Background:
This 83-nucleotide RNA sequence from Candidatus Photodesmus anomalopis belongs to the Rfam family "tRNA". It scores 54 bits against the family's covariance model. Rfam classes the family as a transfer RNA. From the family's description: Transfer RNA (tRNA) molecules are approximately 80 nucleotides in length. Their secondary structure includes four short double-helical elements and three loops (D, anti-codon, and T loops). Further hydrogen bonds mediate the characteristic L-shaped molecular structure. tRNAs have two regions of fundamental functional importance: the anti-codon, which is responsible for specific mRNA codon recognition, and the 3' end, to which the tRNAs corresponding amino acid is attached (by aminoacyl-tRNA synthetases). tRNAs cope with the degeneracy of the genetic code in two manners: having more than one tRNA (with a specific anti-codon) for a particular amino acid; and 'wobble' base-pairing, i.e. permitting non-standard base-pairing at the 3rd anti-codon position.

RNA sequence: AGCUGUGUGAUGGAAUUGGUAGACAUGAGUGAUUCAAAAUCACUUGCCGUUAAGGCGUAGCGGUUCGAAUCCGCUCACAGCUA
Number, nucleotide and partner (000 for none) at each position: 001a082002g081003c080004u079005g078006u077007g076008u000009g000010a026011u025012g024013g000014a000015a000016u000017u000018g000019g000020u000021a000022g000023a000024c012025a011026u010027g000028a044029g043030u042031g041032a040033u000034u000035c000036a000037a000038a000039a000040u032041c031042a030043c029044u028045u000046g000047c000048c000049g000050u000051u000052a000053a000054g000055g000056c000057g000058u000059a075060g074061c073062g072063g071064u000065u000066c000067g000068a000069a000070u000071c063072c062073g061074c060075u059076c007077a006078c005079a004080g003081c002082u001083a000